[Rfam]
About this RNA: A member of the RNA family "tRNA" from Pseudogymnoascus sp. VKM F-4515, 95 nucleotides long. The base pairs follow the family's consensus structure, which is taken from published work. Rfam classes the family as a transfer RNA. Gene Ontology term of the family: triplet codon-amino acid adaptor activity. The match comes from Rfam's covariance-model search (47 bits). Taxonomically the source falls in Pseudogymnoascus (Eukaryota, sordariomyceta, Leotiomycetes, Thelebolales).
RNA sequence: GCUGUGUUGCCAGAGUGGUUAAUGGGUAAGACUUGAAUUAAUAAUUCGGUUAUCUUAUGGUUUCGGCCUCGUAGGUUCAAAUCCUGCACACAGCG
Numbered sequence: 001g002c003u004g005u006g007u008u009g010c011c012a013g014a015g016u017g018g019u020u021a022a023u024g025g026g027u028a029a030g031a032c033u034u035g036a037a038u039u040a041a042u043a044a045u046u047c048g049g050u051u052a053u054c055u056u057a058u059g060g061u062u063u064c065g066g067c068c069u070c071g072u073a074g075g076u077u078c079a080a081a082u083c084c085u086g087c088a089c090a091c092a093g094c095g
Stems, first nucleotide, its partner, number of pairs: 001094007010025003027057005071087005